RNA: mir-393 microRNA precursor family
RNA sequence: GAUGGAAGAUUCCUAAGGGAUCGCACGAUCCAAUAAUCGAUUGGGAAUUGAUCACUCCAACAUCACCAAUAAGACAAGACGAACAUUGGAUCAAUGCGAUCCCUUUGGAACUCUCCAC
Numbered sequence: 001g002a003u004g005g006a007a008g009a010u011u012c013c014u015a016a017g018g019g020a021u022c023g024c025a026c027g028a029u030c031c032a033a034u035a036a037u038c039g040a041u042u043g044g045g046a047a048u049u050g051a052u053c054a055c056u057c058c059a060a061c062a063u064c065a066c067c068a069a070u071a072a073g074a075c076a077a078g079a080c081g082a083a084c085a086u087u088g089g090a091u092c093a094a095u096g097c098g099a100u101c102c103c104u105u106u107g108g109a110a111c112u113c114u115c116c117a118c
Stems, first nucleotide, its partner, number of pairs: 003117004008112001010110004015105007023097003027092005